[Rfam]
Nucleotides: 142
Base pairs, nucleotide, nucleotide: 001141002140003139004138
Number, partner (000 for none) and nucleotide at each position: 001141c002140u003139g004138g005000a006000a007000u008000g009000a010000u011000g012000c013000g014000a015000u016000u017000u018000a019000g020000c021000c022000a023000a024000a025000u026000c027000a028000g029000a030000c031000a032000u033000u034000a035000a036000u037000g038000u039000g040000c041000u042000c043000c044000a045000u046000g047000a048000u049000g050000c051000a052000a053000u054000c055000c056000a057000c058000a059000u060000u061000a062000u063000c064000g065000g066000u067000u068000u069000g070000g071000a072000u073000c074000g075000a076000g077000c078000c079000u080000c081000a082000u083000g084000u085000u086000g087000a088000a089000g090000c091000g092000c093000a094000u095000u096000u097000c098000u099000a100000u101000g102000a103000u104000g105000a106000u107000a108000a109000a110000c111000a112000u113000g114000g115000a116000g117000a118000u119000u120000g121000g122000g123000u124000u125000u126000u127000u128000a129000u130000a131000u132000u133000c134000c135000u136000g137000a138004c139003c140002a141001g142000a